[Rfam]
RNA sequence: ACUUUUUACGAGGUAUCAGCAGUUUUCUUUCAUUAGUGGGGGAGGAAGAUGAAAACUACAAAGCAGCAGUAGAGUUUUAAAGUUUAAAUAGACAGGUCCGAGCGCCUGAACGCGCUCUUCCAUUUUACUUUAACCCUCCUAAGAAGUAUUCUGAUCCAGUUUCGCUGCUGAUCAGCAAGGGUAAGUUGAAAG
Numbered sequence: 001a002c003u004u005u006u007u008a009c010g011a012g013g014u015a016u017c018a019g020c021a022g023u024u025u026u027c028u029u030u031c032a033u034u035a036g037u038g039g040g041g042g043a044g045g046a047a048g049a050u051g052a053a054a055a056c057u058a059c060a061a062a063g064c065a066g067c068a069g070u071a072g073a074g075u076u077u078u079a080a081a082g083u084u085u086a087a088a089u090a091g092a093c094a095g096g097u098c099c100g101a102g103c104g105c106c107u108g109a110a111c112g113c114g115c116u117c118u119u120c121c122a123u124u125u126u127a128c129u130u131u132a133a134c135c136c137u138c139c140u141a142a143g144a145a146g147u148a149u150u151c152u153g154a155u156c157c158a159g160u161u162u163c164g165c166u167g168c169u170g171a172u173c174a175g176c177a178a179g180g181g182u183a184a185g186u187u188g189a190a191a192g
Base pairs, nucleotide, nucleotide: 003019004018007015008014009013029146030145033142034141035140036139038136039135040134041131042130043129044128048124049123050122051121054119055118072098073097075095076094100115102113103112104111157185160181161180162179164176165175166174167173
The record is a 192-nucleotide RNA from Tauraco erythrolophus, which matches "Connexin-43 internal ribosome entry site (IRES)" in Rfam. Rfam's curators write: This family represents the connexin-43 internal ribosome entry site (IRES) which allows cap independent translation during conditions such as heat shock and stress. NCBI's taxonomy places the organism under Eukaryota, Amniota, Neoaves, Musophagiformes, Tauraco. Rfam links the family to the GO term ribosome binding.